[Rfam]
RNA sequence: GUGAACUCUUAACUCGAUAGGUAGAAUGAUAGGGUAACGCCUUGAAAUGCCUGCUCUAAUACUCCGACAUGCGAUAUUCGAAUGUGUAUAAGAAUGUGGUGUGAAGCUCGGUGAAGUCGGCUGAAUGUUGCCGUAGUGCCAAUCUAAUUGGUAACCGAAAGCUAACUAGAGGUAGUUGGUGUAACUGAUAGGUCGGGAGUCGUUAAA
Numbered sequence: 001g002u003g004a005a006c007u008c009u010u011a012a013c014u015c016g017a018u019a020g021g022u023a024g025a026a027u028g029a030u031a032g033g034g035u036a037a038c039g040c041c042u043u044g045a046a047a048u049g050c051c052u053g054c055u056c057u058a059a060u061a062c063u064c065c066g067a068c069a070u071g072c073g074a075u076a077u078u079c080g081a082a083u084g085u086g087u088a089u090a091a092g093a094a095u096g097u098g099g100u101g102u103g104a105a106g107c108u109c110g111g112u113g114a115a116g117u118c119g120g121c122u123g124a125a126u127g128u129u130g131c132c133g134u135a136g137u138g139c140c141a142a143u144c145u146a147a148u149u150g151g152u153a154a155c156c157g158a159a160a161g162c163u164a165a166c167u168a169g170a171g172g173u174a175g176u177u178g179g180u181g182u183a184a185c186u187g188a189u190a191g192g193u194c195g196g197g198a199g200u201c202g203u204u205a206a207a
Base pairs, nucleotide, nucleotide: 018053019052020051021050022049023048031043032042033041034040054199055198056197057196064111065110066109067108068103069102070101071100072099074097075096076095077094078093079092118195119194120193121192122191127185128184129183130182131181132157133156140151161180162179163178164177165176166175167174168173

Overview: The family of this 207-nucleotide RNA from Mesobacillus persicus is "Group II catalytic intron D1-D4-5". Rfam's curators write: Group II introns are found in rRNA, tRNA and mRNA of organelles in fungi, plants and protists, and also in mRNA in bacteria. Rfam links the family to the GO term Group II intron splicing. Lineage of the source: Bacteria > Bacillota > Caryophanales > Bacillaceae > Mesobacillus. A reference for the family is Bonen and Vogel (2001), "The ins and outs of group II introns", Trends Genet.